[Rfam]
RNA sequence: AAAUCCCUCUUUGAAGAGGGACCGGAAAUUACCUUGGUAAUUUACAGGGGGAUGUG
Numbered sequence: 001a002a003a004u005c006c007c008u009c010u011u012u013g014a015a016g017a018g019g020g021a022c023c024g025g026a027a028a029u030u031a032c033c034u035u036g037g038u039a040a041u042u043u044a045c046a047g048g049g050g051g052a053u054g055u056g
Base pairs, nucleotide, nucleotide: 004021005020006019007018008017009016010015024045026043027042028041029040030039031038032037
The record is a 56-nucleotide sequence from Gracilimonas mengyeensis, which matches "Whalefall-1 RNA" in Rfam. Taxonomically the source falls in Gracilimonas (Bacteria, Pseudomonadati, Balneolia, Balneolaceae). A search with the family's covariance model found it, with a score of 38 bits.